[Rfam]
This 73-nucleotide sequence from Oryctes borbonicus belongs to the Rfam family "mir-970 microRNA precursor family".

RNA sequence: CGGAUAAAGUUACGCGUGUGCCGUACUGAUAGUGUUAUCACUAGCUAUCAUAAGACACUCGCGGCUAUAUCCG
Dot-bracket structure: ((((((.((((..(((..((.(....(((((..............)))))...).))..))))))).))))))
Pairs were carried over by alignment from the consensus structure, which was predicted with RNAalifold.